Rfam assigns this 72-nucleotide sequence to the family "tRNA". Rfam classes the family as a transfer RNA.
RNA sequence: UCCUCAGUAGCUCAGUGGUAGAGCGGUCGGCUGUUAACCGAUUGGUCGUAGGUUCGAAUCCUACUUGGGGAG
Numbered sequence: 001u002c003c004u005c006a007g008u009a010g011c012u013c014a015g016u017g018g019u020a021g022a023g024c025g026g027u028c029g030g031c032u033g034u035u036a037a038c039c040g041a042u043u044g045g046u047c048g049u050a051g052g053u054u055c056g057a058a059u060c061c062u063a064c065u066u067g068g069g070g071a072g
Stems, first nucleotide, its partner, number of pairs: 001071007010024004026042005048064005